[Rfam]
RNA: Fluoride riboswitch aptamer (crcB RNA motif)
Organism: Robbsia andropogonis
RNA sequence: AGCCGCGCAGGAGAUGGUGCUCCUCCUGGUUUAGACAAACCGCCCCGUCGAUCGCUGAAUAUAUUAUUCCGCAGGACGCGAGGCCGAUGGCGCCUACAGUUUC
Dot-bracket structure: .........[[[[..((((((.]]]]...............(((.....................................)))....)))))).........